[Rfam]
RNA: SAM riboswitch aptamer (S box leader)
Organism: Caldanaerobius fijiensis
Nucleotides: 107
Base pairs, nucleotide, nucleotide: 001107002106003105004104005103006102007101008100013041015040016039017038021031022030023029025079027077028076042071043070044069045068047067048066050061051060052059075099080096081095082094083093084092085091
Number, partner (000 for none) and nucleotide at each position: 001107c002106u003105c004104u005103u006102a007101u008100c009000a010000a011000g012000a013041g014000u015040g016039g017038u018000g019000g020000a021031g022030g023029g024000a025079c026000u027077g028076g029023c030022c031021c032000g033000a034000u035000g036000a037000a038017g039016c040015c041013c042071g043070g044069c045068a046000a047067c048066c049000g050061g051060c052059a053000c054000a055000u056000a057000g058000g059052u060051g061050c062000g063000a064000c065000u066048g067047g068045u069044g070043c071042c072000a073000a074000u075099u076028c077027c078000u079025g080096c081095a082094a083093a084092a085091c086000g087000a088000a089000g090000a091085g092084u093083u094082u095081u096080g097000a098000g099075a100008g101007a102006u103005g104004a105003g106002a107001g